[Rfam]
RNA sequence: GUCUUAUUGGAUGAUGACUGUUAUCUGUCAUGUUCUGAUUGGUCAAUGAAAACAUUAAUGUAUUUCAUCUUUCAUGGAGUUAAUAUCCAAUCAGAACAUAACACAUGAUAGUCAUCAUCC
Number, nucleotide and partner (000 for none) at each position: 001g000002u000003c000004u000005u000006a000007u000008u000009g000010g000011a000012u000013g000014a000015u000016g000017a000018c000019u000020g109021u108022u107023a106024u000025c000026u103027g000028u000029c000030a099031u098032g000033u096034u095035c094036u093037g000038a091039u090040u089041g088042g087043u000044c000045a000046a000047u000048g000049a000050a000051a000052a000053c000054a000055u000056u000057a000058a000059u000060g000061u000062a000063u000064u000065u000066c000067a000068u000069c000070u000071u000072u000073c000074a000075u000076g000077g000078a000079g000080u000081u000082a000083a000084u000085a000086u000087c042088c041089a040090a039091u038092c000093a036094g035095a034096a033097c000098a031099u030100a000101a000102c000103a026104c000105a000106u023107g022108a021109u020110a000111g000112u000113c000114a000115u000116c000117a000118u000119c000120c000
Shown here is a 120-nucleotide RNA from Glycine max, a member of the family "MIR1520 microRNA precursor family". The family is grouped with related families in Rfam's "MIR1520 microRNA precursor clan". It scores 107 bits against the family's covariance model.